[Rfam]
Rfam assigns this 84-nucleotide sequence from Brenneria goodwinii to the family "Aggregatibacter sRNA 22".
It is annotated as a small RNA.
For this family Rfam cites "Small RNA repertoires and their intraspecies variation in Aggregatibacter actinomycetemcomitans" (Oogai et al., DNA Res, 2017).
RNA sequence: UUGCAGGACAAAACGCAUGGCGUUUUGAACGCCGCUUGCGCUGGCCCCGAAGGGGCGAAGCCACAGGCUGAGUCACGCGGCAAG
Dot-bracket structure: ........((((((((...))))))))..((.((....)).))(((((...)))))..((((...))))..(((....)))...
A search with the family's covariance model found it, with a score of 40 bits.